[Rfam]
Nucleotides: 208
Stems, first nucleotide, its partner, number of pairs: 001067007009060002014025004027058009037048002069206002075143003081136002085133002090107002092104005109129001111127001114125001160199003176192004180187002
Number, partner (000 for none) and nucleotide at each position: 001067g002066g003065g004064u005063u006062g007061c008000u009060c010059c011000c012000u013000g014025g015024c016023g017022c018000u019000c020000u021000c022017g023016c024015g025014c026000u027058g028057u029056u030055u031054u032053g033052a034051u035050g036000a037048a038047g039000a040000u041000u042000c043000g044000c045000a046000c047038c048037u049000c050035u051034a052033u053032c054031a055030a056029a057028a058027c059010g060009g061007g062006u063005a064004a065003c066002c067001c068000c069206a070205c071000c072000c073000u074000u075143u076142g077141g078000c079000a080000a081136g082135g083000c084000c085133c086132u087000g088000c089000u090107g091106u092104c093103a094102g095101a096100u097000c098000a099000a100096g101095u102094c103093u104092g105000a106091a107090c108000u109129u110000c111127u112000a113000c114125a115000c116000a117000a118000c119000a120000g121000c122000u123000g124000c125114u126000c127111a128000c129109g130000a131000u132086a133085g134000c135082c136081c137000a138000c139000a140000u141077u142076c143075g144000a145000c146000a147000a148000c149000g150000c151000c152000c153000u154000c155000a156000u157000c158000u159000u160199g161198c162197g163000u164000c165000g166000g167000c168000g169000c170000a171000u172000g173000c174000u175000c176192a177191a178190u179189g180187u181186g182000c183000u184000c185000u186181c187180a188000u189179c190178a191177u192176u193000c194000a195000c196000c197162c198161g199160c200000a201000u202000c203000a204000u205070g206069u207000u208000c
Proteobacterial sRNA psRNA2: a 208-nucleotide RNA sequence from Aquaspirillum sp. LM1. Rfam classes the family as a small RNA. On this family, see Gvakharia et al., FEMS Microbiol Lett 2010: "Computational prediction and transcriptional analysis of sRNAs in Nitrosomonas europaea". Pairs were carried over by alignment from the consensus structure.